[Rfam]
RNA: Small nucleolar RNA SNORD90
RNA sequence: AAUGAGGUGUUUCCUGUCUUAUGAUGAAUUUCAGAGGGCAGAUUCUGAUGUGAAAAUUUAAUUCAUCAUUGAUAUCCUACUAUGGAUUCUGAAGACACUAGAAAAAAA
Numbered sequence: 001a002a003u004g005a006g007g008u009g010u011u012u013c014c015u016g017u018c019u020u021a022u023g024a025u026g027a028a029u030u031u032c033a034g035a036g037g038g039c040a041g042a043u044u045c046u047g048a049u050g051u052g053a054a055a056a057u058u059u060a061a062u063u064c065a066u067c068a069u070u071g072a073u074a075u076c077c078u079a080c081u082a083u084g085g086a087u088u089c090u091g092a093a094g095a096c097a098c099u100a101g102a103a104a105a106a107a108a
Stems, first nucleotide, its partner, number of pairs: 011101002015097005028088001030086004035078004041073001044072002047069001050066005